[Rfam]
Nucleotides: 100
Stems, first nucleotide, its partner, number of pairs: 018085002022081009034069001036067006043060003
Number, partner (000 for none) and nucleotide at each position: 001000u002000c003000u004000g005000g006000c007000g008000g009000g010000c011000u012000g013000c014000c015000g016000u017000c018085u019084g020000u021000c022081u023080g024079c025078c026077u027076g028075u029074c030073u031000g032000u033000g034069c035000c036067u037066g038065c039064u040063g041062u042000a043060c044059a045058g046000g047000u048000g049000c050000a051000g052000g053000a054000a055000g056000u057000u058045c059044u060043g061000c062041a063040c064039a065038g066037c067036a068000a069034g070000u071000g072000u073030a074029g075028a076027c077026a078025g079024g080023c081022a082000g083000a084019c085018a086000c087000a088000c089000g090000a091000c092000a093000a094000c095000u096000c097000c098000g099000u100000g
mir-214 microRNA precursor family: a 100-nucleotide sequence from Anguilla anguilla.
Pairs were carried over by alignment from the consensus structure, which was predicted with RNAalifold.